[Rfam]
RNA: MIR4414 microRNA precursor family
Organism: Vigna angularis
RNA sequence: GCUGAGACUCAGCUGCUGACUCGUUGGUUCAAGAGCUCACCAUCAAGGUAAAUGUCGGUCCAUGGUCCAUGUAACAAUAAAGGUGGUGUGCUUCUGAUACAACGAUGCGGGAGCUGCAUCCAGUCG
Numbered sequence: 001g002c003u004g005a006g007a008c009u010c011a012g013c014u015g016c017u018g019a020c021u022c023g024u025u026g027g028u029u030c031a032a033g034a035g036c037u038c039a040c041c042a043u044c045a046a047g048g049u050a051a052a053u054g055u056c057g058g059u060c061c062a063u064g065g066u067c068c069a070u071g072u073a074a075c076a077a078u079a080a081a082g083g084u085g086g087u088g089u090g091c092u093u094c095u096g097a098u099a100c101a102a103c104g105a106u107g108c109g110g111g112a113g114c115u116g117c118a119u120c121c122a123g124u125c126g
Stems, first nucleotide, its partner, number of pairs: 001124004006119001010116005016110003021105006029097003034092003038088003042084002